[Rfam]
RNA sequence: AACGCUCUAACGGGGUGCCUCGUGCCAUUCGGUGCGCGGCUGAGAGGCUGAAAGCCAACCCGCGGAACCUGAUCCGGCUAACACCGGCGGAGGGAUUAGACGCGUGACAUCU
Numbered sequence: 001a002a003c004g005c006u007c008u009a010a011c012g013g014g015g016u017g018c019c020u021c022g023u024g025c026c027a028u029u030c031g032g033u034g035c036g037c038g039g040c041u042g043a044g045a046g047g048c049u050g051a052a053a054g055c056c057a058a059c060c061c062g063c064g065g066a067a068c069c070u071g072a073u074c075c076g077g078c079u080a081a082c083a084c085c086g087g088c089g090g091a092g093g094g095a096u097u098a099g100a101c102g103c104g105u106g107a108c109a110u111c112u
Stems, first nucleotide, its partner, number of pairs: 006100005011062004017040003021036005047055003068093003074087004
RNA: TPP riboswitch aptamer (THI element)
Organism: Rhizobium tibeticum